Shown here is a 79-nucleotide RNA sequence from Homo sapiens, a member of the family "mir-500 microRNA precursor family". The family's consensus secondary structure was predicted with RNAalifold. The literature on the family includes a 2009 paper in Biochem Genet by Long and Chen, "Identification and characteristics of cattle microRNAs by homology searching and small RNA cloning".

RNA sequence: CCCCCUCUCUAAUCCUUGCUACCUGGGUGAGAGUGCUUUCUGAAUGCAGUGCACCCAGGCAAGGAUUCUGCAAGGGGGA
Numbered sequence: 001c002c003c004c005c006u007c008u009c010u011a012a013u014c015c016u017u018g019c020u021a022c023c024u025g026g027g028u029g030a031g032a033g034u035g036c037u038u039u040c041u042g043a044a045u046g047c048a049g050u051g052c053a054c055c056c057a058g059g060c061a062a063g064g065a066u067u068c069u070g071c072a073a074g075g076g077g078g079a
Base pairs, nucleotide, nucleotide: 011067012066013065014064015063016062017061022059023058024057025056026055027054028053029052034048035047036046